[Rfam]
RNA sequence: CGUCAAUGAUGGUUCGUUUCAAGACGGGUCUGAGUUGUGAUCGAUAAAUUAACGUUCUGAGACG
Numbered sequence: 001c002g003u004c005a006a007u008g009a010u011g012g013u014u015c016g017u018u019u020c021a022a023g024a025c026g027g028g029u030c031u032g033a034g035u036u037g038u039g040a041u042c043g044a045u046a047a048a049u050u051a052a053c054g055u056u057c058u059g060a061g062a063c064g
Stems, first nucleotide, its partner, number of pairs: 001064004
The family of this 64-nucleotide RNA sequence from Plectus sambesii is "Small nucleolar RNA sn668".
Rfam links the family to the GO terms nucleolus and RNA processing.
It is annotated as a C/D-box small nucleolar RNA.
On this family, see Higa et al., Biochem Biophys Res Commun 2002: "Location of 2(')-O-methyl nucleotides in 26S rRNA and methylation guide snoRNAs in Caenorhabditis elegans".
Pairs were carried over by alignment from the consensus structure, which was predicted with WAR.
NCBI's taxonomy places the organism under Eukaryota, Eumetazoa, Bilateria, Nematoda, Plectus.